[Rfam]
RNA sequence: CCUGAUAAAGCCAAACUCAUCGCGAGGUGGGGACGGAAAGCCACGGAUCUUCUCAUGUAAGAUAGCCGGGUUACCUGGA
Number, nucleotide and partner (000 for none) at each position: 001c000002c000003u000004g075005a000006u000007a000008a000009a000010g000011c036012c035013a000014a000015a000016c031017u030018c029019a028020u027021c026022g000023c000024g000025a000026g021027g020028u019029g018030g017031g016032g000033a000034c065035g012036g011037a000038a000039a072040g071041c070042c069043a000044c068045g067046g066047a063048u062049c061050u000051u000052c000053u000054c000055a000056u000057g000058u000059a000060a000061g049062a048063u047064a000065g034066c046067c045068g044069g042070g041071u040072u039073a000074c000075c004076u000077g000078g000079a000

Shown here is a 79-nucleotide sequence from Candidatus Vecturithrix granuli, a member of the family "c-di-GMP-I-GGC riboswitch aptamer".